Shown here is a 51-nucleotide RNA from Oscillatoriaceae cyanobacterium M33_DOE_052, a member of the family "DUF3800-VI RNA". By type it is a cis-regulatory element. The base pairs follow the family's consensus structure, which is taken from published work. The match comes from Rfam's covariance-model search (60 bits).
RNA sequence: CGGUUGAGAGAGCUGCACGAUGCGGUUCGCUGGGUAAUACCCACUCGGCUG
Numbered sequence: 001c002g003g004u005u006g007a008g009a010g011a012g013c014u015g016c017a018c019g020a021u022g023c024g025g026u027u028c029g030c031u032g033g034g035u036a037a038u039a040c041c042c043a044c045u046c047g048g049c050u051g
Base pairs, nucleotide, nucleotide: 001051002050003049004048005047006046007045008044010028011027012026013025014024015023016022031043032042033041034040